[Rfam]
RNA: permuted transfer-messenger RNA
RNA sequence: GGCGAUAAACGCACCUGAAGAGAUGGACCGGACCCGGGGGCGGUACCCGGCGGCUCCACCACAGGCGGUUCGUCGCGGGCGACAGCAAGACGUCUCCCGCACGAAGGCGCCCGAUGAAGAUCCGGAAUGGCGUGCCAUGCGCCGAUCGGGACUUCCUGCGGCAGCGAACCGUCGGUGAUGGGGCCGAAACAGGAUCGACGGACGUAGGGACAGGAACGCUUUCGCUCGGUGAGAUACCACCGUUAUCGGUUCGAACUUGAGAGCUGCCAACACCAACGCUGCUCCGGUCGCCCUCGCCGCUUAA
Dot-bracket structure: (((((........((........((..(((...(((((.......)))))(((((((..........................................................................................................................)))))))............))).))........)).......)))))((((........))))..............................................................